[Rfam]
RNA sequence: CUGAUCAGGCGCAUGGGCCAACGUUCGUGCAACGAGCCCCCUUCACGUGAAAACCACGUGAAUGCGCCAUUAUCAG
Numbered sequence: 001c002u003g004a005u006c007a008g009g010c011g012c013a014u015g016g017g018c019c020a021a022c023g024u025u026c027g028u029g030c031a032a033c034g035a036g037c038c039c040c041c042u043u044c045a046c047g048u049g050a051a052a053a054c055c056a057c058g059u060g061a062a063u064g065c066g067c068c069a070u071u072a073u074c075a076g
Stems, first nucleotide, its partner, number of pairs: 001076005008068005015039003022034004042062008

Overview:
Shown here is a 76-nucleotide RNA sequence, a member of the family "L4-Archaeoglobi ribosomal protein leades". The family's consensus secondary structure is taken from published work. Rfam classes the family as a cis-regulatory leader.